Rfam assigns this 106-nucleotide sequence from Mycoplasmopsis glycophila to the family "S10-Clostridia ribosomal protein leader". By type it is a cis-regulatory leader. Taxonomically the source falls in Mycoplasmopsis (Bacteria, Mycoplasmatota, Mycoplasmoidales, Metamycoplasmataceae). For this family Rfam cites "Discovery of 20 novel ribosomal leader candidates in bacteria and archaea" (Eckert and Weinberg, BMC Microbiol, 2020).
RNA sequence: CUAUAGCCAUGAUCUAUAAGGUUGUUAAAUUGCCAAAAAUGUUGUUGAGGACAAUUUAAGUUUUUAUAGGGAGCUAUGUUCAAUUAAAGAACAAAGGAGACAACAA
Number, nucleotide and partner (000 for none) at each position: 001c000002u000003a000004u000005a000006g000007c000008c000009a000010u000011g000012a000013u000014c069015u068016a067017u000018a065019a064020g063021g062022u000023u000024g000025u059026u058027a057028a056029a055030u054031u053032g052033c000034c000035a000036a000037a000038a000039a000040u000041g000042u000043u000044g000045u000046u000047g000048a000049g000050g000051a000052c032053a031054a030055u029056u028057u027058a026059a025060g000061u000062u021063u020064u019065u018066a000067u016068a015069g014070g000071g000072a000073g000074c000075u000076a000077u105078g104079u103080u102081c000082a000083a000084u100085u099086a000087a000088a000089g000090a000091a000092c000093a000094a000095a000096g000097g000098a000099g085100a084101c000102a080103a079104c078105a077106a000